[Rfam]
This 344-nucleotide RNA sequence from Gynuella sunshinyii belongs to the Rfam family "Bacterial RNase P class A". The family's consensus secondary structure is taken from published work.
RNA sequence: UGAGUCGGCCAGACAGUCGCUGCCAGAUUUAUCUGGGGGAGGAAAGUCCGGGCUCCACAGGGUAAGGUGCCAGGUAACGCCUGGGGGGCGGAAGUCCACGGAAAGUGCAACAGAAAAUAUACCGCCUGUCUCUGACAGGUAAGGGUGAAAUGGUGCGGUAAGAGCGCACCGCGUAACUGGUAACAGUUGCGGCACGGCAAACCCCACCUGGAGCAAGGCCAAAUAGGGUUCCAUAUGGUGUGACCCGCAUCGGAACCGGGUAGGCUGCUUGAAUGUACUGGUAACGGUGCGUCUAGAUGAAUGGCUGUCCACGACAGAACCCGGCUUAUCGGCCGACUCAGCAA
Numbered sequence: 001u002g003a004g005u006c007g008g009c010c011a012g013a014c015a016g017u018c019g020c021u022g023c024c025a026g027a028u029u030u031a032u033c034u035g036g037g038g039g040a041g042g043a044a045a046g047u048c049c050g051g052g053c054u055c056c057a058c059a060g061g062g063u064a065a066g067g068u069g070c071c072a073g074g075u076a077a078c079g080c081c082u083g084g085g086g087g088g089c090g091g092a093a094g095u096c097c098a099c100g101g102a103a104a105g106u107g108c109a110a111c112a113g114a115a116a117a118u119a120u121a122c123c124g125c126c127u128g129u130c131u132c133u134g135a136c137a138g139g140u141a142a143g144g145g146u147g148a149a150a151u152g153g154u155g156c157g158g159u160a161a162g163a164g165c166g167c168a169c170c171g172c173g174u175a176a177c178u179g180g181u182a183a184c185a186g187u188u189g190c191g192g193c194a195c196g197g198c199a200a201a202c203c204c205c206a207c208c209u210g211g212a213g214c215a216a217g218g219c220c221a222a223a224u225a226g227g228g229u230u231c232c233a234u235a236u237g238g239u240g241u242g243a244c245c246c247g248c249a250u251c252g253g254a255a256c257c258g259g260g261u262a263g264g265c266u267g268c269u270u271g272a273a274u275g276u277a278c279u280g281g282u283a284a285c286g287g288u289g290c291g292u293c294u295a296g297a298u299g300a301a302u303g304g305c306u307g308u309c310c311a312c313g314a315c316a317g318a319a320c321c322c323g324g325c326u327u328a329u330c331g332g333c334c335g336a337c338u339c340a341g342c343a344a
Base pairs, nucleotide, nucleotide: 001340002339003338004337005336006335007334008333009332010331011329012309013308014307015306016305017304018303020039021038023036024035025034026033027032044327045326046325048324049323050322051321052320053213054212055211056210060246061245062244063243065209066208067207068206069205070084071083072082073081074080085099086097087096088095089094100204101203105202106201107198108197122144123143124140125139126138127137128136129135130134152170153169154168155167156166157165171193172191173190174189175188176187177186178185179184217266218265219264220263227257228256229255230254231253232252237251238250239249240248241247273292274291275290276289277288278287279286280285
It is annotated as a ribozyme.